[Rfam]
RNA sequence: CUUACAGAGUUUAUUGGCAUUCUGUCCACCUCCAUCGAUGAUAUAUAGUUUUCGUAAUCUUUAUGUGGAGGUGGACAUACUGCCAACUAUGCUGUGUUAA
Numbered sequence: 001c002u003u004a005c006a007g008a009g010u011u012u013a014u015u016g017g018c019a020u021u022c023u024g025u026c027c028a029c030c031u032c033c034a035u036c037g038a039u040g041a042u043a044u045a046u047a048g049u050u051u052u053c054g055u056a057a058u059c060u061u062u063a064u065g066u067g068g069a070g071g072u073g074g075a076c077a078u079a080c081u082g083c084c085a086a087c088u089a090u091g092c093u094g095u096g097u098u099a100a
Stems, first nucleotide, its partner, number of pairs: 014086006023077011
Source information: The family of this 100-nucleotide RNA sequence from Lupinus albus is "MIR394 microRNA precursor family". Gene Ontology terms of the family: RISC complex and miRNA-mediated post-transcriptional gene silencing. The match comes from Rfam's covariance-model search (86 bits). Lineage of the source: Eukaryota > eudicotyledons > Pentapetalae > Fabales > Lupinus.